[Rfam]
RNA sequence: AACCGAUAAUGGCAAACUUACUGAAAAGUAAGGACGCAAAGCUACGGGUCUAAUGCUGAGAAGCGAUGAUCGCCGGGCCGCCGAA
Numbered sequence: 001a002a003c004c005g006a007u008a009a010u011g012g013c014a015a016a017c018u019u020a021c022u023g024a025a026a027a028g029u030a031a032g033g034a035c036g037c038a039a040a041g042c043u044a045c046g047g048g049u050c051u052a053a054u055g056c057u058g059a060g061a062a063g064c065g066a067u068g069a070u071c072g073c074c075g076g077g078c079c080g081c082c083g084a085a
Stems, first nucleotide, its partner, number of pairs: 012037002017032006041078003045075003048070003055064003

Annotation:
c-di-GMP-I riboswitch aptamer: an 85-nucleotide sequence from Heyndrickxia ginsengihumi. GEMM was predicted in a large-scale screen for bacterial structured RNA regulatory elements.